[Rfam]
RNA sequence: UGAGUUGGUUAGACAAUCGCUGGUUUAUUGAAGCCCUUAAAUGGUUUAUUUAGAAAUAAAUAAAACGAUCUAGUGGGACAAAUAGACGAGAGGAAAGUCCGAGCUACAAAGGGCAGAGUGCCAGAUAACGUCUGGGAGGCGUGAGCCUACGACAAGUGCAGCAGAGAGAAGACCGCCGAUGGCUUUCUUUUUAGAAAGAUCAGGUAAGGGUGAAAGGGUGCGGUAAGAGCGCACCGUAUGUAUGGUAACAUUUCAUAGCAGGGUAAACUCCACUCGUAGCAAGACCAAAUAGGAACUCAAUGGGUGGCCCGCUCAGAGUUCGGGUAGGUUGCUUGAGCGUAUGUGCGAAUAUACGCCUAGAGGAAUGAUUGUCCGCGACAGAACUCGGCUUAUCGACCAACUCACCUC
Numbered sequence: 001u002g003a004g005u006u007g008g009u010u011a012g013a014c015a016a017u018c019g020c021u022g023g024u025u026u027a028u029u030g031a032a033g034c035c036c037u038u039a040a041a042u043g044g045u046u047u048a049u050u051u052a053g054a055a056a057u058a059a060a061u062a063a064a065a066c067g068a069u070c071u072a073g074u075g076g077g078a079c080a081a082a083u084a085g086a087c088g089a090g091a092g093g094a095a096a097g098u099c100c101g102a103g104c105u106a107c108a109a110a111g112g113g114c115a116g117a118g119u120g121c122c123a124g125a126u127a128a129c130g131u132c133u134g135g136g137a138g139g140c141g142u143g144a145g146c147c148u149a150c151g152a153c154a155a156g157u158g159c160a161g162c163a164g165a166g167a168g169a170a171g172a173c174c175g176c177c178g179a180u181g182g183c184u185u186u187c188u189u190u191u192u193a194g195a196a197a198g199a200u201c202a203g204g205u206a207a208g209g210g211u212g213a214a215a216g217g218g219u220g221c222g223g224u225a226a227g228a229g230c231g232c233a234c235c236g237u238a239u240g241u242a243u244g245g246u247a248a249c250a251u252u253u254c255a256u257a258g259c260a261g262g263g264u265a266a267a268c269u270c271c272a273c274u275c276g277u278a279g280c281a282a283g284a285c286c287a288a289a290u291a292g293g294a295a296c297u298c299a300a301u302g303g304g305u306g307g308c309c310c311g312c313u314c315a316g317a318g319u320u321c322g323g324g325u326a327g328g329u330u331g332c333u334u335g336a337g338c339g340u341a342u343g344u345g346c347g348a349a350u351a352u353a354c355g356c357c358u359a360g361a362g363g364a365a366u367g368a369u370u371g372u373c374c375g376c377g378a379c380a381g382a383a384c385u386c387g388g389c390u391u392a393u394c395g396a397c398c399a400a401c402u403c404a405c406c407u408c
Base pairs, nucleotide, nucleotide: 001404002403003402004401005400006399007398008397009396010395011393012373013372014371015370016369017368018367020090021089023087024086025085026084027083028082095391096390097389099388100387101386102385103384104279105278106277107276111310112309113308114307116275117274118273119272120271121135122134123133124132125131136150137148138147139146140145151270152269156268157267158264159263173209174208175205176204177203181201182200184198185197217235218234219233220232221231222230236259237257238256239255240254242251243250244249283330284329285328286327293321294320295319296318297317298316301315302314303313304312305311337356338355339354340353341352342351343350344349

Background
This 408-nucleotide sequence from Phocoenobacter uteri belongs to the Rfam family "Bacterial RNase P class A". It is annotated as a ribozyme. NCBI's taxonomy places the organism under Bacteria, Gammaproteobacteria, Pasteurellales, Pasteurellaceae, Phocoenobacter. Pairs were carried over by alignment from the consensus structure, which is taken from published work.